[Rfam]
RNA sequence: ACAAUGGCCGACUAGGGUUCCGGCUCGUCCGAUGACGAGUGGCUGGUCCGAGAGUGGGCGACCUCAUCAGCGGCGGGGAGCCGCGAGGUUACACGGCGGGACAAAAGCCCGGGAGAA
Numbered sequence: 001a002c003a004a005u006g007g008c009c010g011a012c013u014a015g016g017g018u019u020c021c022g023g024c025u026c027g028u029c030c031g032a033u034g035a036c037g038a039g040u041g042g043c044u045g046g047u048c049c050g051a052g053a054g055u056g057g058g059c060g061a062c063c064u065c066a067u068c069a070g071c072g073g074c075g076g077g078g079a080g081c082c083g084c085g086a087g088g089u090u091a092c093a094c095g096g097c098g099g100g101a102c103a104a105a106a107g108c109c110c111g112g113g114a115g116a117a
Base pairs, nucleotide, nucleotide: 007059008058009057011055012054015049016048020046021045022043023040024039025038026037027036028035060090061089062088063087064086065085067083092112094115098110099109100108
The record is a 117-nucleotide sequence, which matches "Guanidine-I riboswitch aptamer" in Rfam. About the family: This family represents a conserved RNA structure found upstream of the ykkC and yxkD genes in Bacillus subtilis and related genes in other bacteria.